[Rfam]
Background:
Shown here is a 97-nucleotide RNA sequence, a member of the family "pemK RNA". Rfam classes the family as a cis-regulatory element.
RNA sequence: AUAUUGAUACUUCUGUCCAGUCACAGCCCCCCUUGACCGGGGGAUCACGCAAUGAGGGCAGCCGGCAGAGAUCCUGGCGGGGGUGGGAUUCCCAUGA
Dot-bracket structure: ...........(((((((.....................................))))))(((.(((.....))).)))(((.......))))...